The family of this 139-nucleotide RNA sequence from Oryza punctata is "Small nucleolar RNA J26". Rfam 15.1 lists 39 matches to the family in 9 species. Lineage of the source: Eukaryota > Tracheophyta > Euphyllophyta > Petrosaviidae > Oryza. Its family is annotated with nucleolus and RNA processing in the Gene Ontology.

[Rfam]
RNA sequence: UGGAAAAAACAACACAGUGAGUAAGAUAGGAGCUCUGAAGUAAAGGUUGGAGCUCUGGUCAUUAUAUUAAGAAGAAGAAGUUGAUUUCAGAAUACAAUUCAAGGAUAUUACAUGGAGCAAAAAGCAACUGAACUUUCCC
Numbered sequence: 001u002g003g004a005a006a007a008a009a010c011a012a013c014a015c016a017g018u019g020a021g022u023a024a025g026a027u028a029g030g031a032g033c034u035c036u037g038a039a040g041u042a043a044a045g046g047u048u049g050g051a052g053c054u055c056u057g058g059u060c061a062u063u064a065u066a067u068u069a070a071g072a073a074g075a076a077g078a079a080g081u082u083g084a085u086u087u088c089a090g091a092a093u094a095c096a097a098u099u100c101a102a103g104g105a106u107a108u109u110a111c112a113u114g115g116a117g118c119a120a121a122a123a124g125c126a127a128c129u130g131a132a133c134u135u136u137c138c139c
Base pairs, nucleotide, nucleotide: 003137004136005135006134064108065107066106067105068104079099080098081097082096083095